The family of this 63-nucleotide RNA from Mycobacteroides franklinii is "Mycobacterium sRNA Ms_IGR-8". It is annotated as a small RNA. A reference for the family is Li et al. (2013), "Identification of small RNAs in Mycobacterium smegmatis using heterologous Hfq", RNA.
RNA sequence: CCGCUGACAUGCAACGAGCGUGAAGCUACUGCGGGAAAUGGACUCAAAUCUCGCAGUAGCUUC
Numbered sequence: 001c002c003g004c005u006g007a008c009a010u011g012c013a014a015c016g017a018g019c020g021u022g023a024a025g026c027u028a029c030u031g032c033g034g035g036a037a038a039u040g041g042a043c044u045c046a047a048a049u050c051u052c053g054c055a056g057u058a059g060c061u062u063c
Base pairs, nucleotide, nucleotide: 022063023062024061025060026059027058028057029056030055031054032053033052034051035049